[Rfam]
RNA: ASpks TB sRNA
Organism: Streptomyces sp. C
RNA sequence: CUUCAGGGAGCCCAGCCACAGCGGGCGGUCCGCCGGGCGUUCCUGCCCGUACGUGGCCAGCAGUGCCUGCGCCUC
Numbered sequence: 001c002u003u004c005a006g007g008g009a010g011c012c013c014a015g016c017c018a019c020a021g022c023g024g025g026c027g028g029u030c031c032g033c034c035g036g037g038c039g040u041u042c043c044u045g046c047c048c049g050u051a052c053g054u055g056g057c058c059a060g061c062a063g064u065g066c067c068u069g070c071g072c073c074u075c
Stems, first nucleotide, its partner, number of pairs: 016024002031071003038065002043060003047056003
Dot-bracket structure: ...............((.....))......(((....((...(((.(((....))).)))...))...)))....